Description: The record is a 400-nucleotide RNA from Streptomyces olivoverticillatus, which matches "Bacterial RNase P class A" in Rfam. It scores 297 bits against the family's covariance model. The source organism's lineage runs through Bacteria, Bacillati, Actinomycetota, Actinomycetes and Streptomyces.
RNA sequence: CGAGCCGGCCGGGCGGCCGCGUGGGAUCUUCGGAUCCCCCGAGGAACGUCCGGGCUCCAUACGGCAGGGUGGUGGGUAACGCCCACCCGGGGUGACCCGCGGGACAGUGCCACAGAAAACAGACCGCCGGGGAUCUUCGGAUUCCCGGUAAGGGUGAAACGGUGGUGUAAGAGACCACCAGCGUCCGAGGUGACUCGGACGGCUAGGUAAACCCCACCUGGAGCAAGGUCAAGAUGGGACACUUCGGUGUCCCUGCGCGGAUGAUCGAGGGCUGCCCGCCCGAGUCCGCGGGUAGACCGCACGAGCCUGACGGCAACGCCAGGCCUAGAUGGAUGGCCGCCUCCCCGAGGGCCGCAAGGCCCCCGGGAGACAGAACCCGGCGUACAGGCCGACUCGUCCG
Numbered sequence: 001c002g003a004g005c006c007g008g009c010c011g012g013g014c015g016g017c018c019g020c021g022u023g024g025g026a027u028c029u030u031c032g033g034a035u036c037c038c039c040c041g042a043g044g045a046a047c048g049u050c051c052g053g054g055c056u057c058c059a060u061a062c063g064g065c066a067g068g069g070u071g072g073u074g075g076g077u078a079a080c081g082c083c084c085a086c087c088c089g090g091g092g093u094g095a096c097c098c099g100c101g102g103g104a105c106a107g108u109g110c111c112a113c114a115g116a117a118a119a120c121a122g123a124c125c126g127c128c129g130g131g132g133a134u135c136u137u138c139g140g141a142u143u144c145c146c147g148g149u150a151a152g153g154g155u156g157a158a159a160c161g162g163u164g165g166u167g168u169a170a171g172a173g174a175c176c177a178c179c180a181g182c183g184u185c186c187g188a189g190g191u192g193a194c195u196c197g198g199a200c201g202g203c204u205a206g207g208u209a210a211a212c213c214c215c216a217c218c219u220g221g222a223g224c225a226a227g228g229u230c231a232a233g234a235u236g237g238g239a240c241a242c243u244u245c246g247g248u249g250u251c252c253c254u255g256c257g258c259g260g261a262u263g264a265u266c267g268a269g270g271g272c273u274g275c276c277c278g279c280c281c282g283a284g285u286c287c288g289c290g291g292g293u294a295g296a297c298c299g300c301a302c303g304a305g306c307c308u309g310a311c312g313g314c315a316a317c318g319c320c321a322g323g324c325c326u327a328g329a330u331g332g333a334u335g336g337c338c339g340c341c342u343c344c345c346c347g348a349g350g351g352c353c354g355c356a357a358g359g360c361c362c363c364c365g366g367g368a369g370a371c372a373g374a375a376c377c378c379g380g381c382g383u384a385c386a387g388g389c390c391g392a393c394u395c396g397u398c399c400g
Base pairs, nucleotide, nucleotide: 001396002395003394004393006391007390008389009388010387011385012341013340014339015338016337017336018335020041021040023038024037025036026035027034028033046383047382048381050380051379052378053377054376055223056222057221058220063276064275065274067219068218069217070216071215072086073085074084075083076082087101088099089098090097091096102214103213107212108211109208110207111206124153125152126149127148128147129146130145131144132143133142134141161179162178163177164176165175166174181203182201183200184199185198186197187196188195189194227298228297229296230295269281270280271279272278305324306323307322308321309320311318312317